RNA sequence: CCGUACAGCCGGGGAGUUAGCGGCACCCUGUACCAGCAAUCCGCUACAGCUGGGGUGAUGUCCUGCCGCGGGCUGAUUUAUGCAGAGCUGCCCCUGAUAAGUGAUAUUGACGUUUGGGUCUUACGCAAUGGGAAUCCGUGAAUCGUGUCAGGUCAGGAAUGGAGCAGCACUAAGCGGAACCUCUCAUGUGACGUGAGGGUGCCUGGGCCGAGUUAACUGUCAGGGUAACGUCUGUGUAACAGGUUCAAAGCAGGACGUACGG
Numbered sequence: 001c002c003g004u005a006c007a008g009c010c011g012g013g014g015a016g017u018u019a020g021c022g023g024c025a026c027c028c029u030g031u032a033c034c035a036g037c038a039a040u041c042c043g044c045u046a047c048a049g050c051u052g053g054g055g056u057g058a059u060g061u062c063c064u065g066c067c068g069c070g071g072g073c074u075g076a077u078u079u080a081u082g083c084a085g086a087g088c089u090g091c092c093c094c095u096g097a098u099a100a101g102u103g104a105u106a107u108u109g110a111c112g113u114u115u116g117g118g119u120c121u122u123a124c125g126c127a128a129u130g131g132g133a134a135u136c137c138g139u140g141a142a143u144c145g146u147g148u149c150a151g152g153u154c155a156g157g158a159a160u161g162g163a164g165c166a167g168c169a170c171u172a173a174g175c176g177g178a179a180c181c182u183c184u185c186a187u188g189u190g191a192c193g194u195g196a197g198g199g200u201g202c203c204u205g206g207g208c209c210g211a212g213u214u215a216a217c218u219g220u221c222a223g224g225g226u227a228a229c230g231u232c233u234g235u236g237u238a239a240c241a242g243g244u245u246c247a248a249a250g251c252a253g254g255a256c257g258u259a260c261g262g
Stems, first nucleotide, its partner, number of pairs: 001262006008056003011029004016024003033053005061255006070246005078239009089227002093224006101217002103214003112208008120197006126188002129186005135178005145170004153162003
This 262-nucleotide sequence from Oscillospiraceae bacterium Marseille-Q3528 belongs to the Rfam family "Bacterial large signal recognition particle RNA".
The match comes from Rfam's covariance-model search (185 bits).
The literature on the family includes a 2003 paper in Nucleic Acids Res by Rosenblad et al., "SRPDB: Signal Recognition Particle Database".
The organism belongs to Oscillospiraceae, within Bacteria.